SAM riboswitch aptamer (S box leader): a 110-nucleotide sequence from Sporosarcina pasteurii.

RNA sequence: UUCUUAUCAAGAGAGAUGGAGGGAAUGGCCCUUAGAAGUCUCAGCAACCAGCCUUUUUAGGUAUGGUGCUAAUUCCAAUAGGUAUUUUCAUAAUACCUGGCAGAUGAGAA
Numbered sequence: 001u002u003c004u005u006a007u008c009a010a011g012a013g014a015g016a017u018g019g020a021g022g023g024a025a026u027g028g029c030c031c032u033u034a035g036a037a038g039u040c041u042c043a044g045c046a047a048c049c050a051g052c053c054u055u056u057u058u059a060g061g062u063a064u065g066g067u068g069c070u071a072a073u074u075c076c077a078a079u080a081g082g083u084a085u086u087u088u089c090a091u092a093a094u095a096c097c098u099g100g101c102a103g104a105u106g107a108g109a110a
Stems, first nucleotide, its partner, number of pairs: 001110008013042005021031003026077003043070004048066002050062001052060001074102001079099008
Dot-bracket structure: ((((((((....(((((...(((..[[[)))......)))))((((.(((.(.......).)..))))))...(]]].((((((((.....))))))))..)))))))))
Record summary
A reference for the family is Montange et al. (2010), "Discrimination between closely related cellular metabolites by the SAM-I riboswitch", J Mol Biol.